[Rfam]
Histone 3' UTR stem-loop: a 47-nucleotide RNA sequence from Odocoileus virginianus. The family's RNA type in Rfam is cis-regulatory element. Pairs were carried over by alignment from the consensus structure, which is taken from published work.

RNA sequence: CCAAAGGCUCUUUUCAGAGCCACUUACUUUUUCCAUAAAAGGGGCCU
Number, nucleotide and partner (000 for none) at each position: 001c000002c000003a000004a000005a000006g021007g020008c019009u018010c017011u016012u000013u000014u000015c000016a011017g010018a009019g008020c007021c006022a000023c000024u000025u000026a000027c000028u000029u000030u000031u000032u000033c000034c000035a000036u000037a000038a000039a000040a000041g000042g000043g000044g000045c000046c000047u000
Annotation: The mRNAs of metazoan histone genes lack a poly-A tail. 3' end processing occurs at a site between a highly conserved stem-loop (modelled by this family) and a purine rich region around 20 nts downstream (the histone downstream element, or HDE). The stem-loop is bound by a 31 kDa stem-loop binding protein (SLBP - also termed the histone hairpin binding protein, or HBP). Together with U7 snRNA binding of the HDE, SLBP binding nucleate s the formation of the processing complex.